The family of this 104-nucleotide RNA sequence from Hypseocharis bilobata is "Plastid-rps12 3UTR RNA". Rfam 15.1 lists 1,710 matches to the family in 1,426 species. It is annotated as a cis-regulatory element. Plastid rpl20 is a non-coding RNA (ncRNA) recognised in plastids.
Nucleotides: 104
Base pairs, nucleotide, nucleotide: 009023010022011021012020060096061095062094063093064087065086067083068082069081070080071079072078
Number, partner (000 for none) and nucleotide at each position: 001000g002000g003000u004000u005000u006000u007000c008000c009023u010022u011021g012020g013000u014000u015000c016000a017000a018000a019000g020012c021011c022010a023009a024000u025000c026000c027000a028000u029000c030000u031000u032000a033000a034000u035000u036000u037000u038000g039000a040000a041000u042000u043000g044000a045000a046000g047000a048000u049000g050000a051000g052000a053000a054000a055000g056000a057000a058000u059000u060096c061095c062094c063093c064087a065086u066000u067083g068082g069081u070080a071079g072078c073000a074000a075000a076000a077000g078072g079071u080070u081069a082068u083067c084000c085000c086065a087064u088000u089000a090000a091000g092000c093063g094062g095061g096060g097000a098000a099000a100000a101000u102000c103000c104000a